A member of the RNA family "Small nucleolar RNA snR43" from Metschnikowia sp. JCM 33374, 193 nucleotides long. The family's RNA type in Rfam is H/ACA-box small nucleolar RNA. The match comes from Rfam's covariance-model search (98 bits). Clan: SNORA9 clan. The organism belongs to Metschnikowia, within Eukaryota. Its family is annotated with nucleolus and RNA processing in the Gene Ontology.
[Rfam]
RNA sequence: CACUCCUAUUUCUGCCCUGCGUUCAUCCUUAUUGAAUAGUAGGUCUUGUAACGGAGAAGAGAAAGCCCGUGAACGGUCCAGCGAAACUUAAACUGUUUUCUUCGCUGGUACUUUUGACGGGAUCGUGUGGUAAGUGGUUCUUUGAAGGCGCUGCUCUUAUUGAGAUUAACGCCGGGCUGCUGCCGCUACAUUU
Number, nucleotide and partner (000 for none) at each position: 001c000002a000003c056004u055005c054006c053007u000008a000009u000010u000011u000012c000013u000014g000015c000016c043017c042018u041019g040020c000021g037022u036023u035024c034025a033026u000027c000028c000029u000030u000031a000032u000033u025034g024035a023036a022037u021038a000039g000040u019041a018042g017043g016044u000045c000046u000047u000048g000049u000050a000051a000052c000053g006054g005055a004056g003057a000058a000059g000060a000061g000062a000063a000064a000065g000066c121067c120068c119069g118070u117071g000072a115073a114074c000075g112076g111077u110078c108079c107080a106081g105082c104083g103084a102085a101086a000087c000088u000089u000090a000091a000092a000093c000094u000095g000096u000097u000098u000099u000100c000101u085102u084103c083104g082105c081106u080107g079108g078109u000110a077111c076112u075113u000114u073115u072116g000117a070118c069119g068120g067121g066122a000123u000124c000125g000126u000127g186128u185129g184130g183131u000132a000133a181134g180135u179136g178137g177138u000139u000140c000141u000142u000143u000144g000145a000146a000147g173148g172149c171150g170151c000152u000153g166154c000155u165156c164157u163158u162159a000160u000161u000162g158163a157164g156165a155166u153167u000168a000169a000170c150171g149172c148173c147174g000175g000176g000177c137178u136179g135180c134181u133182g000183c130184c129185g128186c127187u000188a000189c000190a000191u000192u000193u000